Clostridiales-3 RNA: a 268-nucleotide sequence. Rfam classes the family as a small RNA. The base pairs follow the family's consensus structure, which is taken from published work.
[Rfam]
RNA sequence: UAGUAGUUUGAUGGAUCGAGAGAUGAAGAACGAGGAGUUGGACUUAAAUCUGGUAAAGGGACAAAUAAGGAUGUUGCGUAAGGAUAAUAACCCAUGGAGGGCGAGAGAGUCGUCCUUAUCUUCACAAGGCAAACAGAAGAGAUAGUCUUUCAUCACAAAGGAAGGCGUCGUGAACACAGUAUGUGGCUCGUCUGUAACUCCCGAAGGUGAUUACACCUUUAUGUGUACGGGGCGAUAUAGGGGUCUAGAAGACUGGCGUACACCUACA
Numbered sequence: 001u002a003g004u005a006g007u008u009u010g011a012u013g014g015a016u017c018g019a020g021a022g023a024u025g026a027a028g029a030a031c032g033a034g035g036a037g038u039u040g041g042a043c044u045u046a047a048a049u050c051u052g053g054u055a056a057a058g059g060g061a062c063a064a065a066u067a068a069g070g071a072u073g074u075u076g077c078g079u080a081a082g083g084a085u086a087a088u089a090a091c092c093c094a095u096g097g098a099g100g101g102c103g104a105g106a107g108a109g110u111c112g113u114c115c116u117u118a119u120c121u122u123c124a125c126a127a128g129g130c131a132a133a134c135a136g137a138a139g140a141g142a143u144a145g146u147c148u149u150u151c152a153u154c155a156c157a158a159a160g161g162a163a164g165g166c167g168u169c170g171u172g173a174a175c176a177c178a179g180u181a182u183g184u185g186g187c188u189c190g191u192c193u194g195u196a197a198c199u200c201c202c203g204a205a206g207g208u209g210a211u212u213a214c215a216c217c218u219u220u221a222u223g224u225g226u227a228c229g230g231g232g233c234g235a236u237a238u239a240g241g242g243g244u245c246u247a248g249a250a251g252a253c254u255g256g257c258g259u260a261c262a263c264c265u266a267c268a
Stems, first nucleotide, its partner, number of pairs: 006031004015024003093172003097117008119140005141169003145166007175185003204219006223263007242254005